[Rfam]
RNA: tRNA
Organism: Cohaesibacter celericrescens
RNA sequence: GCGGGUGUGGUGGAAUUGGUAGACACGCCAGAUUUAGGUUCUGGUGGCGAAAGUCGUGGGGGUUCAAGUCCCUCCACCCGUA
Dot-bracket structure: (((((((..(((...........))).(((((.......))))).............(((((.......)))))))))))).